[Rfam]
Record summary:
A member of the RNA family "Small nucleolar RNA SNORD19" from Chrysolophus pictus, 73 nucleotides long. Gene Ontology terms of the family: RNA processing and nucleolus. The family is grouped with related families in Rfam's "SNORD19 clan". Pairs were carried over by alignment from the consensus structure.
RNA sequence: GAAAAAUGAAGAUAAUUUCAUUCCUUCUUAUUACAGUGAAGACUUCAGAUCCAACUCUGAUUUCACUCUAAUU
Numbered sequence: 001g002a003a004a005a006a007u008g009a010a011g012a013u014a015a016u017u018u019c020a021u022u023c024c025u026u027c028u029u030a031u032u033a034c035a036g037u038g039a040a041g042a043c044u045u046c047a048g049a050u051c052c053a054a055c056u057c058u059g060a061u062u063u064c065a066c067u068c069u070a071a072u073u
Stems, first nucleotide, its partner, number of pairs: 001064004